Annotation: This 132-nucleotide sequence from Xenopus laevis belongs to the Rfam family "Small nucleolar RNA SNORA22". The match comes from Rfam's covariance-model search (97 bits). NCBI's taxonomy places the organism under Eukaryota, Eumetazoa, Euteleostomi, Pipoidea, Xenopus. Its family is annotated with RNA processing and nucleolus in the Gene Ontology. Pairs were carried over by alignment from the consensus structure, which was predicted with RNAfold. It is annotated as an H/ACA-box small nucleolar RNA. From the family's description: ACA22 is a member of the H/ACA class of snoRNA that guide the sites of modification of uridines to pseudouridines.
RNA sequence: AUGCACAGAGAACACCCAAGUGUGCUUUUUAGCUCCCUUGGCCUUAAGACUGUGCUAAAUAGAUGUCUGUCCUUUUUCCUCUGCGGUAAGAGAUUUUAUUCUCUUGCACGUAUUCAGAAGCACAGUACAAUC
Dot-bracket structure: ..((((((.....(.(((((.(.(((....))).).)))))...)....)))))).((..((.....).)..)).....((((((..((((((......))))))...))....))))..............